[Rfam]
RNA sequence: CACCGACAUCAGCGAUUCGUUCUGCGAACCCUGGCCGACCGCCAGAUAGGCGUUCAUACCCAGCUCUUUCAUCUGCUGUUCGCCGAUGACGCGGGUAGCGACGUUGUCGCUGAAGGCGUCGGCCAACUGACGCGCCUGCGAGGCAAGGUAGCCGGCGUUACAGAUAUUGGGCGGCAUGUUGCUCAGAUCUUUGGC
Numbered sequence: 001c002a003c004c005g006a007c008a009u010c011a012g013c014g015a016u017u018c019g020u021u022c023u024g025c026g027a028a029c030c031c032u033g034g035c036c037g038a039c040c041g042c043c044a045g046a047u048a049g050g051c052g053u054u055c056a057u058a059c060c061c062a063g064c065u066c067u068u069u070c071a072u073c074u075g076c077u078g079u080u081c082g083c084c085g086a087u088g089a090c091g092c093g094g095g096u097a098g099c100g101a102c103g104u105u106g107u108c109g110c111u112g113a114a115g116g117c118g119u120c121g122g123c124c125a126a127c128u129g130a131c132g133c134g135c136c137u138g139c140g141a142g143g144c145a146a147g148g149u150a151g152c153c154g155g156c157g158u159u160a161c162a163g164a165u166a167u168u169g170g171g172c173g174g175c176a177u178g179u180u181g182c183u184c185a186g187a188u189c190u191u192u193g194g195c
Stems, first nucleotide, its partner, number of pairs: 005189002012032001014030001016028005033043003050059001062077003078135002081132002084129002087126001091123002094120003099112002102109002136163003140159002143156002167186006